[Rfam]
A member of the RNA family "FMN riboswitch aptamer (RFN element)" from Leucothrix pacifica, 143 nucleotides long.
Pairs were carried over by alignment from the consensus structure, which is taken from published work.
Taxonomically the source falls in Leucothrix (Bacteria, Pseudomonadati, Pseudomonadota, Gammaproteobacteria).
Gene Ontology term of the family: FMN binding.
The RFN element is a highly conserved domain that is found frequently in the 5'-untranslated regions of prokaryotic mRNAs that encode for flavin mononucleotide (FMN) biosynthesis and transport proteins. This element is a metabolite-dependent riboswitch that directly binds FMN in the absence of proteins.

RNA sequence: CGUUCUCUUCAGGGCGGGGCGAAAUUCCCCACCGGCGGUGAAUCAUUUUUUGACAGCCCGCGAGCGCCUGUUUACGAACAGGGUCAGCAGAUCAGGUGUAACUCCUGAGCCGACGGUUAGAGUCCGGAUGAAAGAAGAUAGGC
Numbered sequence: 001c002g003u004u005c006u007c008u009u010c011a012g013g014g015c016g017g018g019g020c021g022a023a024a025u026u027c028c029c030c031a032c033c034g035g036c037g038g039u040g041a042a043u044c045a046u047u048u049u050u051u052g053a054c055a056g057c058c059c060g061c062g063a064g065c066g067c068c069u070g071u072u073u074a075c076g077a078a079c080a081g082g083g084u085c086a087g088c089a090g091a092u093c094a095g096g097u098g099u100a101a102c103u104c105c106u107g108a109g110c111c112g113a114c115g116g117u118u119a120g121a122g123u124c125c126g127g128a129u130g131a132a133a134g135a136a137g138a139u140a141g142g143c
Stems, first nucleotide, its partner, number of pairs: 003141002006138005017029003031123002033112002035061004056110002064088002092108005114126003
A search with the family's covariance model found it, with a score of 116 bits.